Annotation: A member of the RNA family "Small Cajal body specific RNA 6" from Buceros rhinoceros, 263 nucleotides long. About the family: U88 is small Cajal body specific RNA (scaRNA). scaRNAs are a novel class of small nuclear RNAs which localise to the Cajal bodies. U88 is found associated with both fibrillarin and Gar1p and co-localises with coilin in Cajal bodies. NCBI's taxonomy places the organism under Eukaryota, Vertebrata, Saurischia, Buceros, Buceros rhinoceros. The family's RNA type in Rfam is small Cajal body RNA.
[Rfam]
RNA sequence: GGUCUGUGAUGAAUAGUAAAAGGUCUGAUUAUCCUAAGACUUGCACUUCCAUGACCUUUUCUCCCAGCAGUUUCUCGCCUGUCACAGCACAGUGAUGAUGUGGCUGGCAGAGUGUUUGCUGACAGUUUGUGAUGUGCUCAGUUCAUGUUAACCUGAAGCAUCGGAGACAUGACUGGAAUUAGCAUCCAACAGUCUUACUUGAAGGAGUUUGGGGUCUUGGAUUGUCUUAAAUGGACAUGUGAUCUGACUUUUCUGCUGAGACC
Numbered sequence: 001g002g003u004c005u006g007u008g009a010u011g012a013a014u015a016g017u018a019a020a021a022g023g024u025c026u027g028a029u030u031a032u033c034c035u036a037a038g039a040c041u042u043g044c045a046c047u048u049c050c051a052u053g054a055c056c057u058u059u060u061c062u063c064c065c066a067g068c069a070g071u072u073u074c075u076c077g078c079c080u081g082u083c084a085c086a087g088c089a090c091a092g093u094g095a096u097g098a099u100g101u102g103g104c105u106g107g108c109a110g111a112g113u114g115u116u117u118g119c120u121g122a123c124a125g126u127u128u129g130u131g132a133u134g135u136g137c138u139c140a141g142u143u144c145a146u147g148u149u150a151a152c153c154u155g156a157a158g159c160a161u162c163g164g165a166g167a168c169a170u171g172a173c174u175g176g177a178a179u180u181a182g183c184a185u186c187c188a189a190c191a192g193u194c195u196u197a198c199u200u201g202a203a204g205g206a207g208u209u210u211g212g213g214g215u216c217u218u219g220g221a222u223u224g225u226c227u228u229a230a231a232u233g234g235a236c237a238u239g240u241g242a243u244c245u246g247a248c249u250u251u252u253c254u255g256c257u258g259a260g261a262c263c
Base pairs, nucleotide, nucleotide: 001263002262003261004260037245038244039243041241048221049220050219051218053216054215061207062206063205064204065121066120067119068118069117070116078107079106081104082103083102084101085100086099129187131186132185133184134183135182144171145170146169147168148167149166152163